[Rfam]
RNA: S. pyogenes small RNA 1186876
RNA sequence: UAAGACUUAUGAAAGAGAAAACCGCCGUAUGUUUACUAUUAUGAUCAUUGGUUUAGCUGUAUUUUCAAUAAUUAAAAUCAUUCUAUUUUUCUAUUUUUAUCAGCAAUUUGAGCGCAAGCAAAAAAGAAAAGUUGAAUCAAACAACCAGCAAAGACAGUCCAAAGAAAGUGACGCUGUCCCUUCAAAAAAAUUCCCAUUUUAAAAAGCUUGGAAAGUGUACAAAGUGCACAUUUCCAAGCUUUU
Numbered sequence: 001u002a003a004g005a006c007u008u009a010u011g012a013a014a015g016a017g018a019a020a021a022c023c024g025c026c027g028u029a030u031g032u033u034u035a036c037u038a039u040u041a042u043g044a045u046c047a048u049u050g051g052u053u054u055a056g057c058u059g060u061a062u063u064u065u066c067a068a069u070a071a072u073u074a075a076a077a078u079c080a081u082u083c084u085a086u087u088u089u090u091c092u093a094u095u096u097u098u099a100u101c102a103g104c105a106a107u108u109u110g111a112g113c114g115c116a117a118g119c120a121a122a123a124a125a126g127a128a129a130a131g132u133u134g135a136a137u138c139a140a141a142c143a144a145c146c147a148g149c150a151a152a153g154a155c156a157g158u159c160c161a162a163a164g165a166a167a168g169u170g171a172c173g174c175u176g177u178c179c180c181u182u183c184a185a186a187a188a189a190a191u192u193c194c195c196a197u198u199u200u201a202a203a204a205a206g207c208u209u210g211g212a213a214a215g216u217g218u219a220c221a222a223a224g225u226g227c228a229c230a231u232u233u234c235c236a237a238g239c240u241u242u243u
Base pairs, nucleotide, nucleotide: 014065015064016063028050031048032047036043080137081136082135083134085132086131087130088129089128090127091126092125094123095122096121097120103113104112153178154177155176156175157174158173162169204241205240206239207238208237209236210235211234212233213232214231215229216228217227218226219225220224